[Rfam]
RNA sequence: CUCUUACAGCGCAACUGGCGUAUAAGAUGGCUAACCAUCGGGGAGCGCAAUUUUUUCCGGCCGCGCGCCUGGGCCGGAUCU
Numbered sequence: 001c002u003c004u005u006a007c008a009g010c011g012c013a014a015c016u017g018g019c020g021u022a023u024a025a026g027a028u029g030g031c032u033a034a035c036c037a038u039c040g041g042g043g044a045g046c047g048c049a050a051u052u053u054u055u056u057c058c059g060g061c062c063g064c065g066c067g068c069c070u071g072g073g074c075c076g077g078a079u080c081u
Base pairs, nucleotide, nucleotide: 006051009048010047011046012045015042016041017069018068019067020066021065027038028037029036030035058076059075060074061073062072